The record is a 533-nucleotide part of an RNA from Halapricum desulfuricans, which matches "Archaeal large subunit ribosomal RNA" in Rfam.
[Rfam]
RNA sequence: GCUACUAUGCCAGCUGGUGGAUAGCUCGGCUCGGAAGCCGAUGAAGGACGUGCCAAGCUGCGAUAAGCCUGAGGGAGCCGCACGGAGGCGAAGAACUCAGGAUUUCCGAAUGGGAACUCCUCACCGCAAUUGCUUCGCGCAAUGGGGAACGCCGGGAACUGAAACAUCUCAGUACCGGCAGGAAGAGAAAACGAACGUGAUGUCGUUAGUAACCGCGAGUGAACGCGACGCAGUCCAAACCGAAUCCUUCGGGAUAUGUGGUGUUUUGGGCUGGUCAUCAUCGACCGAACGUCUUCGAGAAGUCUCCUGGAAUGGAGCGUGAUACAGGGUGACAACCCCGUAUCGAAGUCAAGUACGUCGUGCGCCAGUUCCUGAGUAUCGGGGGUUGGAAAUCCCUCGUGAAUUUGGCAGGCAUCGUCUGUCAAGACUAAAUACUCUCCGAGACCGAUAGUGAACAAGUAGCGUGAGCGAACGCUGAAAAGCACCCUCAGAAGGGAGGUGCAAUAGGGCUUGAAAUCAGUUGGCGAUGGAGC
Dot-bracket structure: .......((((((((((.....(((..((((((((((........((((((........))).....((((((...(((.......)))......))))))...)))....(((....))).......(((((.....)))))......((((((.....((....))......))))).).........((....))...(((((.....((.....))....)))))..((((....(((................)))..........((((......((((..........(((...(.((((......)))))..(...).(((.......)))...)))...........))))...))))............((((((........)))))).......(((((.......)))))..)))).....)).)))))).))...............((....))....))...................................).....)))))))))).......
Taxonomically the source falls in Halapricum (Archaea, Methanobacteriati, Methanobacteriota, Halobacteria).